[Rfam]
A member of the RNA family "Plastid-rps18 3UTR RNA" from Cynara cardunculus, 54 nucleotides long.
For this family Rfam cites "Retrograde signaling in plants: A critical review focusing on the GUN pathway and beyond" (Richter et al., Plant Commun, 2023).
Plastid rps18 is a non-coding RNA (ncRNA) present in plastids.
The family's RNA type in Rfam is cis-regulatory element.
The base pairs follow the family's consensus structure, which was predicted with LocARNA.
It scores 62 bits against the family's covariance model.

RNA sequence: UGCAAGUAUUUUACGAUUAAGAAGCAACUGUCUCUUGUACAGAUCGCAGUACCU
Dot-bracket structure: .................(((((.((....)).))))).................
Numbered sequence: 001u002g003c004a005a006g007u008a009u010u011u012u013a014c015g016a017u018u019a020a021g022a023a024g025c026a027a028c029u030g031u032c033u034c035u036u037g038u039a040c041a042g043a044u045c046g047c048a049g050u051a052c053c054u
Stems, first nucleotide, its partner, number of pairs: 018037005024031002